[Rfam]
RNA sequence: AGCACCUAAAAGCGUUUUCUUGCCAGCUCGUUUAAAUGCUCUUGAAAAUCGUAGAUGUGUGCCAGAGCAAAACUCUUACAAUUGCAAGUGAUUUGAGUUUAUAAAUAACUCUAAUCCGUUUACAUUGUAAACACUA
Numbered sequence: 001a002g003c004a005c006c007u008a009a010a011a012g013c014g015u016u017u018u019c020u021u022g023c024c025a026g027c028u029c030g031u032u033u034a035a036a037u038g039c040u041c042u043u044g045a046a047a048a049u050c051g052u053a054g055a056u057g058u059g060u061g062c063c064a065g066a067g068c069a070a071a072a073c074u075c076u077u078a079c080a081a082u083u084g085c086a087a088g089u090g091a092u093u094u095g096a097g098u099u100u101a102u103a104a105a106u107a108a109c110u111c112u113a114a115u116c117c118g119u120u121u122a123c124a125u126u127g128u129a130a131a132c133a134c135u136a
Stems, first nucleotide, its partner, number of pairs: 002062004006057001012052003015048005022039002025037001076130007086121005091115003096110004
The record is a 136-nucleotide RNA sequence from Drosophila kikkawai, which matches "Small nucleolar RNA psi28S-3316" in Rfam. The family has 33 seed sequences and 85 matches in Rfam 15.1. From the family's description: psi28S-3316 is a member of the H/ACA class of snoRNA. This family is responsible for guiding the modification of uridine 3316 in Drosophila 28S rRNA to pseudouridine. NCBI's taxonomy places the organism under Eukaryota, Opisthokonta, Endopterygota, Aparaglossata, Sophophora.